[Rfam]
About this RNA
Rfam assigns this 199-nucleotide sequence from Serratia proteamaculans to the family "GcvB RNA". It is one of the family's seed sequences. Rfam describes the family as follows. The gcvB gene encodes a small untranslated RNA involved in expression of the dipeptide and oligopeptide transport systems in Escherichia coli. Included several unknown homologues in alignment (Bateman A pers obs). It base-pairs with SorC. This interaction triggers the degradation of GcvB by RNase E, alleviating the GcvB-mediated mRNA repression of other amino acid-related transport and metabolic genes. The source organism's lineage runs through Bacteria, Pseudomonadati, Pseudomonadota, Serratia and Serratia proteamaculans. Its family is annotated with mRNA binding and regulation of gene expression in the Gene Ontology.
RNA sequence: ACUUCCCGGGCCGGAACGAAAAGGGAGUGGGUGUCGAGGACGCCGAUGAACUUUUGGCUUGUGGUUGUGAUGUUGUGUUUGCAAAUUGUCUGGCAAUCCAGACGUGGUAGCUAAGCUACUGUUUUUCACUUCCUGUACAUUUACCCUGUCUGUCCAUAGUGAUUUUAUGCAGCACCGCAAUCUUUGCGGUGCUUUUUUU
Numbered sequence: 001a002c003u004u005c006c007c008g009g010g011c012c013g014g015a016a017c018g019a020a021a022a023g024g025g026a027g028u029g030g031g032u033g034u035c036g037a038g039g040a041c042g043c044c045g046a047u048g049a050a051c052u053u054u055u056g057g058c059u060u061g062u063g064g065u066u067g068u069g070a071u072g073u074u075g076u077g078u079u080u081g082c083a084a085a086u087u088g089u090c091u092g093g094c095a096a097u098c099c100a101g102a103c104g105u106g107g108u109a110g111c112u113a114a115g116c117u118a119c120u121g122u123u124u125u126u127c128a129c130u131u132c133c134u135g136u137a138c139a140u141u142u143a144c145c146c147u148g149u150c151u152g153u154c155c156a157u158a159g160u161g162a163u164u165u166u167a168u169g170c171a172g173c174a175c176c177g178c179a180a181u182c183u184u185u186g187c188g189g190u191g192c193u194u195u196u197u198u199u
Stems, first nucleotide, its partner, number of pairs: 009059004015055002021053003027047002030044005087104007106120006138169003171193008